[Rfam]
RNA sequence: ACCGCGCUUCGUUAGGUGAGGCUCCUACACGAACACAGGCCACUGAUCCGACGACGUCGAGAGACGCCCAGGGUUAGGACAGAUCUUCCCGGCCUAAGGGAUGAUCCGAAGUGGCUUCCCACCUCAAGGUGGGACACGUCGUGCAGUGCCAAAGCUCUGAUGAGGAAGUGCUCG
Numbered sequence: 001a002c003c004g005c006g007c008u009u010c011g012u013u014a015g016g017u018g019a020g021g022c023u024c025c026u027a028c029a030c031g032a033a034c035a036c037a038g039g040c041c042a043c044u045g046a047u048c049c050g051a052c053g054a055c056g057u058c059g060a061g062a063g064a065c066g067c068c069c070a071g072g073g074u075u076a077g078g079a080c081a082g083a084u085c086u087u088c089c090c091g092g093c094c095u096a097a098g099g100g101a102u103g104a105u106c107c108g109a110a111g112u113g114g115c116u117u118c119c120c121a122c123c124u125c126a127a128g129g130u131g132g133g134a135c136a137c138g139u140c141g142u143g144c145a146g147u148g149c150c151a152a153a154g155c156u157c158u159g160a161u162g163a164g165g166a167a168g169u170g171c172u173c174g
Stems, first nucleotide, its partner, number of pairs: 005170006011161002013097001015156003020150003025146002028143005039115005045075005055066004082106004088100003117134005
Rfam assigns this 174-nucleotide RNA sequence from Mycolicibacterium smegmatis to the family "M-box riboswitch aptamer (ykoK leader)". The source organism's lineage runs through Bacteria, Bacillati, Actinomycetes, Mycobacteriales and Mycolicibacterium smegmatis.